[Rfam]
RNA sequence: AGUGGGACCAAGUUUGGUGGGCCAUUUUCUGGUCUGUAGCCAAGAACAGGAGUCCUUUAGUUUGCCGCCUGAAUGAGGGCCUGCC
Numbered sequence: 001a002g003u004g005g006g007a008c009c010a011a012g013u014u015u016g017g018u019g020g021g022c023c024a025u026u027u028u029c030u031g032g033u034c035u036g037u038a039g040c041c042a043a044g045a046a047c048a049g050g051a052g053u054c055c056u057u058u059a060g061u062u063u064g065c066c067g068c069c070u071g072a073a074u075g076a077g078g079g080c081c082u083g084c085c
Stems, first nucleotide, its partner, number of pairs: 002084003006080001008078002012074006018067002021065002024062001026060002032053002035050001037048001
Dot-bracket structure: .(((.(.((..((((((((.((.(.((....((.(.(..........).).)).....)).).)))).))))))..)).).))).
The family of this 85-nucleotide RNA from Pan troglodytes is "mir-571 microRNA precursor family". Gene Ontology terms of the family: miRNA-mediated post-transcriptional gene silencing and RISC complex.